Ascomycota telomerase RNA: a 219-nucleotide part of an RNA from Coniochaeta hoffmannii. A reference for the family is Qi et al. (2013), "The common ancestral core of vertebrate and fungal telomerase RNAs", Nucleic Acids Res. Clan: Telomerase clan. It scores 530 bits against the family's covariance model. Rfam 15.1 lists 475 matches to the family in 456 species. Lineage of the source: Eukaryota > Dikarya > Ascomycota > Sordariomycetes > Coniochaeta.

RNA sequence: UCCCCUUCAGUUCUCCGACUCCCGUUUUCCGAAAGGAAUGUUCGACAGAACCUCUCGGCCCCGGUCUGGUAUUUCGCGUCUACUCCUGUCUUCCGAACCUGUAUCAGGUAUCAAGCUUUAUGCGGACGGGGUGCGUGAUCUCGUGCGUCUCCUUCGGGCGGCAAGCGAGGCCAAGCCUGUCGAGGGAACGGGUCUCGGAACUUAACCCUAAGUAAUCUG
Number, nucleotide and partner (000 for none) at each position: 001u000002c000003c000004c000005c000006u000007u000008c000009a202010g201011u200012u000013c000014u000015c198016c197017g196018a195019c000020u000021c000022c000023c000024g000025u000026u000027u000028u000029c000030c000031g000032a000033a000034a000035g000036g000037a000038a000039u000040g000041u000042u000043c000044g000045a000046c000047a000048g000049a000050a000051c000052c000053u000054c000055u000056c000057g000058g000059c000060c000061c000062c000063g000064g000065u000066c000067u000068g000069g000070u000071a000072u000073u000074u000075c000076g000077c000078g000079u000080c000081u000082a000083c000084u000085c000086c000087u000088g000089u000090c000091u000092u000093c000094c000095g000096a000097a000098c000099c000100u000101g000102u000103a000104u000105c000106a000107g000108g000109u000110a000111u000112c000113a000114a000115g000116c000117u000118u000119u000120a000121u000122g000123c000124g000125g000126a000127c000128g000129g000130g000131g000132u000133g000134c000135g000136u000137g000138a000139u000140c000141u000142c000143g000144u000145g000146c000147g000148u000149c000150u000151c000152c000153u000154u000155c000156g000157g000158g000159c000160g000161g000162c000163a000164a000165g000166c000167g000168a000169g000170g000171c000172c000173a000174a000175g000176c000177c000178u000179g000180u000181c000182g000183a000184g000185g000186g000187a000188a000189c000190g000191g000192g000193u000194c000195u018196c017197g016198g015199a000200a011201c010202u009203u000204a000205a000206c000207c000208c000209u000210a000211a000212g000213u000214a000215a000216u000217c000218u000219g000